[Rfam]
RNA sequence: AGGUGCAAGGAAAAAAACACAGACCCGGUUGGUAGUCCGGGCGCAGCGAAAGCUGUCAGUAACCUGCCUCCUUGGUUGUCCGUUCUUUGCGAAACAACA
Numbered sequence: 001a002g003g004u005g006c007a008a009g010g011a012a013a014a015a016a017a018c019a020c021a022g023a024c025c026c027g028g029u030u031g032g033u034a035g036u037c038c039g040g041g042c043g044c045a046g047c048g049a050a051a052g053c054u055g056u057c058a059g060u061a062a063c064c065u066g067c068c069u070c071c072u073u074g075g076u077u078g079u080c081c082g083u084u085c086u087u088u089g090c091g092a093a094a095c096a097a098c099a
Stems, first nucleotide, its partner, number of pairs: 004091008022042001025040004043056005066076003

Notes:
A member of the RNA family "azaaromatic riboswitch aptamer (yjdF RNA)" from Anaerocolumna jejuensis, 99 nucleotides long. Taxonomically the source falls in Anaerocolumna jejuensis (Bacteria, Clostridia, Lachnospirales, Lachnospiraceae). The match comes from Rfam's covariance-model search (80 bits). Pairs were carried over by alignment from the consensus structure, which is taken from published work.